[Rfam]
RNA: mir-316 microRNA precursor family
Organism: Scaptodrosophila lebanonensis
RNA sequence: AAAUUUUAGUCGAUUUGUCUUUUUCCGCUUACUGUCGUUUUAUUUGACAAAGACAGGAAAGGGAAAAAGGCAUAUUUACUAAGAAUUA
Dot-bracket structure: .......(((.((...(.(((((((..(((.(((.(.((..........))).)))..))).))))))).)...)).)))........